[Rfam]
RNA sequence: GUUGCUUGAGGGGAAGGUGGCUCCAGUACGAGAGGAACGAGCCGUCGGCGCCUCUGGUCUACCGGUUGUCUGAUAAGGCAUUGCCGGGCAGCUACGCGCUAGAUGAUAAAAGCUGAAAGCAUCUAAGCUUGAGGUAUCCCCUAAAAAUAAGCAGCGUUUUAGGGCAUGGGUAGAAGACCUGUUUGAUGGGACUGGGAUGUAAGCUUCGAGGCCUUCUGGGCCGAGUUGUUUAGUCUGCGGUUUCCAACGCCCGAUUU
Numbered sequence: 001g002u003u004g005c006u007u008g009a010g011g012g013g014a015a016g017g018u019g020g021c022u023c024c025a026g027u028a029c030g031a032g033a034g035g036a037a038c039g040a041g042c043c044g045u046c047g048g049c050g051c052c053u054c055u056g057g058u059c060u061a062c063c064g065g066u067u068g069u070c071u072g073a074u075a076a077g078g079c080a081u082u083g084c085c086g087g088g089c090a091g092c093u094a095c096g097c098g099c100u101a102g103a104u105g106a107u108a109a110a111a112g113c114u115g116a117a118a119g120c121a122u123c124u125a126a127g128c129u130u131g132a133g134g135u136a137u138c139c140c141c142u143a144a145a146a147a148u149a150a151g152c153a154g155c156g157u158u159u160u161a162g163g164g165c166a167u168g169g170g171u172a173g174a175a176g177a178c179c180u181g182u183u184u185g186a187u188g189g190g191a192c193u194g195g196g197a198u199g200u201a202a203g204c205u206u207c208g209a210g211g212c213c214u215u216c217u218g219g220g221c222c223g224a225g226u227u228g229u230u231u232a233g234u235c236u237g238c239g240g241u242u243u244c245c246a247a248c249g250c251c252c253g254a255u256u257u
Stems, first nucleotide, its partner, number of pairs: 001155007010142004016046008047100005055094003062087005067080005103137003110130005162252004166182005187246003190242005195236003203229002207225001210222003